RNA sequence: UUAGAAGUUUGAUCAGGAAAGGUAGAGUGAACCUCUGCCUAGUCAUAUAAUUCGAUAUGGCAAAACCUUCAAAGUGCGGGAAACUCUUAAAGACAAAUCUACCAAGUUAAUACAGUAAUGUUAUUAAUGGAACAGGUAAUGACUCGUUGUAAGGUAAAAACGAUUUGUAUGAAGAAAUGAAAUAGACAAUCCGCAGCCAAACACCAAAAGUACAUACAAAAAUUUCUGUAUAUAAAAAAAUUGAUGGUGUGCAGUUCAUCGACUAGAUGGAGGUUGGUAAAUAAUUAUAAAGUAAUUUUACAACAACUACUACAAAAUUAUUUGCUUAAGAUAUAGUCAGGCAUAACUGAUAAGUUAUG
Numbered sequence: 001u002u003a004g005a006a007g008u009u010u011g012a013u014c015a016g017g018a019a020a021g022g023u024a025g026a027g028u029g030a031a032c033c034u035c036u037g038c039c040u041a042g043u044c045a046u047a048u049a050a051u052u053c054g055a056u057a058u059g060g061c062a063a064a065a066c067c068u069u070c071a072a073a074g075u076g077c078g079g080g081a082a083a084c085u086c087u088u089a090a091a092g093a094c095a096a097a098u099c100u101a102c103c104a105a106g107u108u109a110a111u112a113c114a115g116u117a118a119u120g121u122u123a124u125u126a127a128u129g130g131a132a133c134a135g136g137u138a139a140u141g142a143c144u145c146g147u148u149g150u151a152a153g154g155u156a157a158a159a160a161c162g163a164u165u166u167g168u169a170u171g172a173a174g175a176a177a178u179g180a181a182a183u184a185g186a187c188a189a190u191c192c193g194c195a196g197c198c199a200a201a202c203a204c205c206a207a208a209a210g211u212a213c214a215u216a217c218a219a220a221a222a223u224u225u226c227u228g229u230a231u232a233u234a235a236a237a238a239a240a241u242u243g244a245u246g247g248u249g250u251g252c253a254g255u256u257c258a259u260c261g262a263c264u265a266g267a268u269g270g271a272g273g274u275u276g277g278u279a280a281a282u283a284a285u286u287a288u289a290a291a292g293u294a295a296u297u298u299u300a301c302a303a304c305a306a307c308u309a310c311u312a313c314a315a316a317a318u319u320a321u322u323u324g325c326u327u328a329a330g331a332u333a334u335a336g337u338c339a340g341g342c343a344u345a346a347c348u349g350a351u352a353a354g355u356u357a358u359g
Base pairs, nucleotide, nucleotide: 001011003009004008064275065274066273067272068271070269071268075195076194077193078192079191080190085186086185087184196255197254201250202249203248204247211244214241215240259339261338262337263336264335265334277325278324279323280322281321282320283319284318285317344357345356346355347354348353
Rfam assigns this 359-nucleotide sequence from Rutstroemia sp. NJR-2017a BBW to the family "Group I catalytic intron".